[Rfam]
RNA sequence: UCCUUAUCAAGAGAAGUGGAGGGAUAUGGCCCUGUGAAGCUUCGGCAGCGGAUUCCGUUAGGAAAACUGUGCCAAAUCCAUCGGGUGAUCCCGGAAGAUAAGCA
Numbered sequence: 001u002c003c004u005u006a007u008c009a010a011g012a013g014a015a016g017u018g019g020a021g022g023g024a025u026a027u028g029g030c031c032c033u034g035u036g037a038a039g040c041u042u043c044g045g046c047a048g049c050g051g052a053u054u055c056c057g058u059u060a061g062g063a064a065a066a067c068u069g070u071g072c073c074a075a076a077u078c079c080a081u082c083g084g085g086u087g088a089u090c091c092c093g094g095a096a097g098a099u100a101a102g103c104a
Stems, first nucleotide, its partner, number of pairs: 001104001003102006013043005021032003026081004044073004049069002053063002077096001082093004
A member of the RNA family "SAM riboswitch aptamer (S box leader)" from Terribacillus saccharophilus, 104 nucleotides long. The family's consensus secondary structure is taken from published work. The SAM riboswitch is found upstream of a number of genes which code for proteins involved in methionine or cysteine biosynthesis in Gram-positive bacteria. The SAM riboswitch acts at the level of transcription termination control. The predicted structure consists of a complex stem-loop region followed by a single stem loop terminator region. A search with the family's covariance model found it, with a score of 78 bits.